[Rfam]
RNA: DUF805 RNA
Organism: Microscilla marina
RNA sequence: AACCAAAGGAGACCAGAAACCUUUAAACAAACGGGGCAGAACCGAAAAGCCAUACGAGUAGGAAAAUA
Numbered sequence: 001a002a003c004c005a006a007a008g009g010a011g012a013c014c015a016g017a018a019a020c021c022u023u024u025a026a027a028c029a030a031a032c033g034g035g036g037c038a039g040a041a042c043c044g045a046a047a048a049g050c051c052a053u054a055c056g057a058g059u060a061g062g063a064a065a066a067u068a
Stems, first nucleotide, its partner, number of pairs: 006023004035051003042062002